The record is a 120-nucleotide RNA sequence from Yersinia enterocolitica, which matches "Fumarate/nitrate reductase regulator sRNA" in Rfam.
RNA sequence: GCAGGUGAAUGCAACGUCAAGCGAUGGGCGUUGCGCUCCAUAUUUGUAAUACUUUUAUUUUUGAAUUACUGCAUAGCACAUAAUUGUUACGAUGCCGAUGUUGUCUCAACAUCGGCAUUU
Numbered sequence: 001g002c003a004g005g006u007g008a009a010u011g012c013a014a015c016g017u018c019a020a021g022c023g024a025u026g027g028g029c030g031u032u033g034c035g036c037u038c039c040a041u042a043u044u045u046g047u048a049a050u051a052c053u054u055u056u057a058u059u060u061u062u063g064a065a066u067u068a069c070u071g072c073a074u075a076g077c078a079c080a081u082a083a084u085u086g087u088u089a090c091g092a093u094g095c096c097g098a099u100g101u102u103g104u105c106u107c108a109a110c111a112u113c114g115g116c117a118u119u120u
Stems, first nucleotide, its partner, number of pairs: 001047004007038002010035009064085005070078003094116008
Source information
The source organism's lineage runs through Bacteria, Pseudomonadati, Enterobacterales, Yersinia enterocolitica and Yersinia enterocolitica subsp. enterocolitica. It is one of the family's seed sequences.